A member of the RNA family "Flavo-1 RNA" from Siansivirga zeaxanthinifaciens, 75 nucleotides long. It scores 52 bits against the family's covariance model.

[Rfam]
RNA sequence: AUUGCGUUAGGGAUUGAAGCGGCAUCCUUUUUUUGAGGCACGAUAAAAAAGAUAUAGCGAAAAGCCCGACCCUUG
Number, nucleotide and partner (000 for none) at each position: 001a000002u000003u000004g000005c000006g000007u000008u000009a000010g067011g066012g065013a000014u063015u062016g000017a000018a000019g058020c057021g000022g000023c000024a053025u052026c051027c000028u000029u000030u048031u047032u046033u045034u000035g000036a000037g000038g000039c000040a000041c000042g000043a000044u000045a033046a032047a031048a030049a000050a000051g026052a025053u024054a000055u000056a000057g020058c019059g000060a000061a000062a015063a014064g000065c012066c011067c010068g000069a000070c000071c000072c000073u000074u000075g000